[Rfam]
RNA sequence: UAUCUUUGCACGCUGAUUAGCUGUCCUGAGCAUGUUUCAGGAACUGACAAUCACAUACAUAAAAAUCAUUUAAAUAAAUAUUGGAAUG
Numbered sequence: 001u002a003u004c005u006u007u008g009c010a011c012g013c014u015g016a017u018u019a020g021c022u023g024u025c026c027u028g029a030g031c032a033u034g035u036u037u038c039a040g041g042a043a044c045u046g047a048c049a050a051u052c053a054c055a056u057a058c059a060u061a062a063a064a065a066u067c068a069u070u071u072a073a074a075u076a077a078a079u080a081u082u083g084g085a086a087u088g
Stems, first nucleotide, its partner, number of pairs: 014053005
A member of the RNA family "S15-Flavobacteria ribosomal protein leader" from Flagellimonas maritima, 88 nucleotides long. It scores 60 bits against the family's covariance model. Taxonomically the source falls in Flagellimonas (Bacteria, Pseudomonadati, Bacteroidota, Flavobacteriia). The family's consensus secondary structure is taken from published work.